The record is a 145-nucleotide sequence from Nonomuraea jabiensis, which matches "c-di-AMP riboswitch aptamer (ydaO/yuaA leader)" in Rfam.
RNA sequence: AGCGUCCGGCCGCCGAAUCCGCGCCUUGCGGAACCGGGGACCCACCUUUCUUGGGGUGAAUCGGACGCCAGCCCAGGCUGCGCCACGUAGGGCACUUCCAGGCCCGAACCCGUCAGCUAACCCGGUAGGCGGUAUGGGAGCAAGG
Numbered sequence: 001a002g003c004g005u006c007c008g009g010c011c012g013c014c015g016a017a018u019c020c021g022c023g024c025c026u027u028g029c030g031g032a033a034c035c036g037g038g039g040a041c042c043c044a045c046c047u048u049u050c051u052u053g054g055g056g057u058g059a060a061u062c063g064g065a066c067g068c069c070a071g072c073c074c075a076g077g078c079u080g081c082g083c084c085a086c087g088u089a090g091g092g093c094a095c096u097u098c099c100a101g102g103c104c105c106g107a108a109c110c111c112g113u114c115a116g117c118u119a120a121c122c123c124g125g126u127a128g129g130c131g132g133u134a135u136g137g138g139a140g141c142a143a144g145g
Stems, first nucleotide, its partner, number of pairs: 011131004018032006033126006043053002054111003062087002090105004
Overview
The organism belongs to Nonomuraea, within Bacteria. A search with the family's covariance model found it, with a score of 84 bits.